[Rfam]
RNA: Bacterial RNase P class A
RNA sequence: AGAGUUGACUAGGCAGUCGCGCUUUCAAUCAAUAGAAAGUGAGGAAAGUCCGGGCUUCAUAGGGCAGGGUGCCAGGUAACGCCUGGGGGACGCGAGUCUACGGCUAGUGCCACAGAAAAUAAACCGCCGAUUUCGCGUAAGUUGCGGAAGGUAAGGGUGAAAUGGUGCGGUAAGAGCGCACCGCGCCAUUGGUAACAAUGGUGGCAGGGUAAACCCCACUCGAAGCAAAACCAAAUAGGGAAACAGGCAGCUUUUGCUGCAUCGCAUGGCCCAUGCGAGUUUCCGGGUAGGUUGCUUGAGGUGUGCGGCGACGUACAUCCUAGAUGAAUGACUGCUCACGACAGAACCCGGCUUAUCGGUCAACUCUCAAU
Numbered sequence: 001a002g003a004g005u006u007g008a009c010u011a012g013g014c015a016g017u018c019g020c021g022c023u024u025u026c027a028a029u030c031a032a033u034a035g036a037a038a039g040u041g042a043g044g045a046a047a048g049u050c051c052g053g054g055c056u057u058c059a060u061a062g063g064g065c066a067g068g069g070u071g072c073c074a075g076g077u078a079a080c081g082c083c084u085g086g087g088g089g090a091c092g093c094g095a096g097u098c099u100a101c102g103g104c105u106a107g108u109g110c111c112a113c114a115g116a117a118a119a120u121a122a123a124c125c126g127c128c129g130a131u132u133u134c135g136c137g138u139a140a141g142u143u144g145c146g147g148a149a150g151g152u153a154a155g156g157g158u159g160a161a162a163u164g165g166u167g168c169g170g171u172a173a174g175a176g177c178g179c180a181c182c183g184c185g186c187c188a189u190u191g192g193u194a195a196c197a198a199u200g201g202u203g204g205c206a207g208g209g210u211a212a213a214c215c216c217c218a219c220u221c222g223a224a225g226c227a228a229a230a231c232c233a234a235a236u237a238g239g240g241a242a243a244c245a246g247g248c249a250g251c252u253u254u255u256g257c258u259g260c261a262u263c264g265c266a267u268g269g270c271c272c273a274u275g276c277g278a279g280u281u282u283c284c285g286g287g288u289a290g291g292u293u294g295c296u297u298g299a300g301g302u303g304u305g306c307g308g309c310g311a312c313g314u315a316c317a318u319c320c321u322a323g324a325u326g327a328a329u330g331a332c333u334g335c336u337c338a339c340g341a342c343a344g345a346a347c348c349c350g351g352c353u354u355a356u357c358g359g360u361c362a363a364c365u366c367u368c369a370a371u
Stems, first nucleotide, its partner, number of pairs: 001367010011356001012336007020041007028033001046354003050351005055225004062272004067221005072086005087101001088099004102216002107214002109210003124156002126152003131149006164182006183205001184203008229293004239284006263277005300319008